[Rfam]
RNA sequence: GAAGCGUCAACCUCGCACCGCGCAAGCGGCUAAGACGAGGAGCGUCCGGGGGUAACGCCGGACUGUG
Numbered sequence: 001g002a003a004g005c006g007u008c009a010a011c012c013u014c015g016c017a018c019c020g021c022g023c024a025a026g027c028g029g030c031u032a033a034g035a036c037g038a039g040g041a042g043c044g045u046c047c048g049g050g051g052g053u054a055a056c057g058c059c060g061g062a063c064u065g066u067g
Stems, first nucleotide, its partner, number of pairs: 011040005018029004044063006051056001
The family of this 67-nucleotide RNA from Micromonospora rhizosphaerae is "Transposase-2 RNA".
The base pairs follow the family's consensus structure, which is taken from published work.
The organism belongs to Micromonospora, within Bacteria.